The family of this 98-nucleotide RNA sequence from Betta splendens is "Z30 small nucleolar RNA".
[Rfam]
RNA sequence: CUGCAGUGAUGAGUCUUGAAGGGACUGAUCUGGUAUUGCUUCCCUCCGAGGAGGCUCUGACCAGGGAAUGACCUCCAGUUAAUCUUCUCUCUGAGCAG
Numbered sequence: 001c002u003g004c005a006g007u008g009a010u011g012a013g014u015c016u017u018g019a020a021g022g023g024a025c026u027g028a029u030c031u032g033g034u035a036u037u038g039c040u041u042c043c044c045u046c047c048g049a050g051g052a053g054g055c056u057c058u059g060a061c062c063a064g065g066g067a068a069u070g071a072c073c074u075c076c077a078g079u080u081a082a083u084c085u086u087c088u089c090u091c092u093g094a095g096c097a098g
Base pairs, nucleotide, nucleotide: 003096004095038055039054040053041052
Overview: A search with the family's covariance model found it, with a score of 81 bits. The base pairs follow the family's consensus structure, which was predicted with PFOLD. Rfam classes the family as a C/D-box small nucleolar RNA. Its family is annotated with RNA processing and nucleolus in the Gene Ontology.